This 71-nucleotide sequence belongs to the Rfam family "RAGATH-18 RNA". From the family's description: Actinobacteria, Firmicutes, Fusobacteria, Thermotogae (1 example).
RNA sequence: UCUGUGGAUCGUUAUAUCAAAUGAGAGUAGUUAGUAAUAUUACAACAAAAUCAGACGGAAUGAAGCAGAAA
Numbered sequence: 001u002c003u004g005u006g007g008a009u010c011g012u013u014a015u016a017u018c019a020a021a022u023g024a025g026a027g028u029a030g031u032u033a034g035u036a037a038u039a040u041u042a043c044a045a046c047a048a049a050a051u052c053a054g055a056c057g058g059a060a061u062g063a064a065g066c067a068g069a070a071a
Base pairs, nucleotide, nucleotide: 001069002068003067004066005065009058010057011056012055013054022053023052024051030046031045032044034043035042